This 77-nucleotide sequence from Jaculus jaculus belongs to the Rfam family "mir-3473 microRNA precursor family". The family has 5 seed sequences and 1,094 matches in Rfam 15.1. The source organism's lineage runs through Eukaryota, Euteleostomi, Amniota, Euarchontoglires and Jaculus. Gene Ontology terms of the family: cellular response to mechanical stimulus, miRNA-mediated post-transcriptional gene silencing and RISC complex.

[Rfam]
RNA sequence: AUCGCUAAGCCAUCUCUCCAGCCCCUGAGUCAUUUUUUAAAAGUCAAAUCUCAGGGCUGGAGAGAUGGCUUAGUGGU
Numbered sequence: 001a002u003c004g005c006u007a008a009g010c011c012a013u014c015u016c017u018c019c020a021g022c023c024c025c026u027g028a029g030u031c032a033u034u035u036u037u038u039a040a041a042a043g044u045c046a047a048a049u050c051u052c053a054g055g056g057c058u059g060g061a062g063a064g065a066u067g068g069c070u071u072a073g074u075g076g077u
Stems, first nucleotide, its partner, number of pairs: 002076023